[Rfam]
The record is an 83-nucleotide RNA from Petromyzon marinus, which matches "mir-194 microRNA precursor family" in Rfam. For this family Rfam cites "New microRNAs from mouse and human" (Lagos-Quintana et al., RNA, 2003). It is one of the family's seed sequences. Rfam 15.1 lists 936 matches to the family in 630 species.
RNA sequence: CAGUGUGCAUCAGGUGUAACAGCAACUCCAUGUGGAUGUUCCAUCGCUCCCAGUGGAGUUACUGUUACUUUUGAUGGACAUUC
Numbered sequence: 001c002a003g004u005g006u007g008c009a010u011c012a013g014g015u016g017u018a019a020c021a022g023c024a025a026c027u028c029c030a031u032g033u034g035g036a037u038g039u040u041c042c043a044u045c046g047c048u049c050c051c052a053g054u055g056g057a058g059u060u061a062c063u064g065u066u067a068c069u070u071u072u073g074a075u076g077g078a079c080a081u082u083c
Base pairs, nucleotide, nucleotide: 010074011073012072016068017067018066019065020064021063022062026058027057028056029055030054031053033052034051035050